[Rfam]
RNA sequence: GGUGGCGUGUCCGAGCGGCCGAAGGAGCACGCCUCGAAAGCGUGUGAGGUGCAAGCCUCCGUGGGUUCAAAUCCCACCGCCACCG
Numbered sequence: 001g002g003u004g005g006c007g008u009g010u011c012c013g014a015g016c017g018g019c020c021g022a023a024g025g026a027g028c029a030c031g032c033c034u035c036g037a038a039a040g041c042g043u044g045u046g047a048g049g050u051g052c053a054a055g056c057c058u059c060c061g062u063g064g065g066u067u068c069a070a071a072u073c074c075c076a077c078c079g080c081c082a083c084c085g
Stems, first nucleotide, its partner, number of pairs: 001084007010026003028044005061077005
RNA: tRNA